Rfam assigns this 219-nucleotide sequence from Medicago truncatula to the family "MIR2655 microRNA precursor family". Its family is annotated with RISC complex and miRNA-mediated post-transcriptional gene silencing in the Gene Ontology. The family's consensus secondary structure was predicted with RNAalifold. The family has 25 seed sequences and 892 matches in Rfam 15.1.
RNA sequence: CCCUUAACUAUUAAAAGUUUCGUUUUGGCCUCUUAACUUAUUUUUUGGUUACGUUUUGGUCCCUUAACUUAUUUUUUUGUUUCAUUUUGGUCCCUUAACUCUAAUACAUUCAUCCUAACAUAAAGGACCAAAGUGGUUGACGGAGGAAGAGUUAAGGGACCAAAACGAAACCAAAAAGUAAGUUAAAGGACCAAAAUGAAACUUUUAAUAGUUAAGAGA
Numbered sequence: 001c002c003c004u005u006a007a008c009u010a011u012u013a014a015a016a017g018u019u020u021c022g023u024u025u026u027g028g029c030c031u032c033u034u035a036a037c038u039u040a041u042u043u044u045u046u047g048g049u050u051a052c053g054u055u056u057u058g059g060u061c062c063c064u065u066a067a068c069u070u071a072u073u074u075u076u077u078u079g080u081u082u083c084a085u086u087u088u089g090g091u092c093c094c095u096u097a098a099c100u101c102u103a104a105u106a107c108a109u110u111c112a113u114c115c116u117a118a119c120a121u122a123a124a125g126g127a128c129c130a131a132a133g134u135g136g137u138u139g140a141c142g143g144a145g146g147a148a149g150a151g152u153u154a155a156g157g158g159a160c161c162a163a164a165a166c167g168a169a170a171c172c173a174a175a176a177a178g179u180a181a182g183u184u185a186a187a188g189g190a191c192c193a194a195a196a197u198g199a200a201a202c203u204u205u206u207a208a209u210a211g212u213u214a215a216g217a218g219a
Stems, first nucleotide, its partner, number of pairs: 003216006023196003027192002031188001033186011045174003